[Rfam]
RNA sequence: CCGGGAGAGGCCAUGCACCCCUGGGUCCGGGAGAGGCCAUGCACCCCUGGGUCCGGGUGAGGCCGUGCUCCCCU
Numbered sequence: 001c002c003g004g005g006a007g008a009g010g011c012c013a014u015g016c017a018c019c020c021c022u023g024g025g026u027c028c029g030g031g032a033g034a035g036g037c038c039a040u041g042c043a044c045c046c047c048u049g050g051g052u053c054c055g056g057g058u059g060a061g062g063c064c065g066u067g068c069u070c071c072c073c074u
Stems, first nucleotide, its partner, number of pairs: 003072005009064004016059005023054009033045001036042002

A member of the RNA family "mir-9279 microRNA precursor family" from Cnephaeus nilssonii, 74 nucleotides long. Pairs were carried over by alignment from the consensus structure, which was predicted with RNAalifold. Gene Ontology terms of the family: miRNA-mediated post-transcriptional gene silencing and RISC complex.